[Rfam]
Rfam assigns this 119-nucleotide RNA from Paspalum vaginatum to the family "U5 spliceosomal RNA". Pairs were carried over by alignment from the consensus structure, which is taken from published work. The organism belongs to Paspalum, within Eukaryota.
RNA sequence: AGCUGCGUGGUGCACACAGAGCGAACUAUUCUUUCGCCUUUUACUAAAGAAUACCGUGUGUGCGCCACAAUUAGCAGCAUACGCUAAUUUUUGGAGGGUGCCUCUUUAUUAGAGGGUCC
Dot-bracket structure: ..((((.(((((((((((........((((((((...........))))))))...)))))))))))......))))......................(.((((.......)))).).
The match comes from Rfam's covariance-model search (96 bits). The family's RNA type in Rfam is spliceosomal small nuclear RNA.